[Rfam]
RNA sequence: GGCACGAAAGUGUCGGGCAUGACGCACCCGCUCCCCCGAGUCCCCUGAAAAUAGGGUGGGCAAUGCACUCCUGAGUAGGACGGGA
Numbered sequence: 001g002g003c004a005c006g007a008a009a010g011u012g013u014c015g016g017g018c019a020u021g022a023c024g025c026a027c028c029c030g031c032u033c034c035c036c037c038g039a040g041u042c043c044c045c046u047g048a049a050a051a052u053a054g055g056g057u058g059g060g061c062a063a064u065g066c067a068c069u070c071c072u073g074a075g076u077a078g079g080a081c082g083g084g085a
Stems, first nucleotide, its partner, number of pairs: 001032003010025006033060003043056005

Notes:
A member of the RNA family "Insect-specific Flavivirus exoribonuclease-resistant RNA element" from Kamiti River virus, 85 nucleotides long. Rfam describes the family as follows. The exoribonuclease-resistant RNA elements (xrRNA) are described throughout all groups of flaviviruses. The base pairs follow the family's consensus structure, which was predicted with LocARNA. It is annotated as a cis-regulatory element. The organism belongs to Orthoflavivirus, within Viruses.